[Rfam]
RNA sequence: CGGGUACUGCCUGGUGCGCGCUUUCGCGAAUAUCCCUGAGGCGAUAAAUACAUCCAUGGGGGCUGUCCCUGCCCGGGCCCUGGCCCGACGUAUAUGGUCCCCACCUGACGUUACUGGCGUCAGAGGACAUUCCAGCAAACGGCCAAGGCGGUCCCGUC
Dot-bracket structure: ..((.((((((((((.((..............(((((((.((...............(((.(((((....((.(((((....)))))..))..))))).)))..............)).)))).)))............)))))).)))))).))...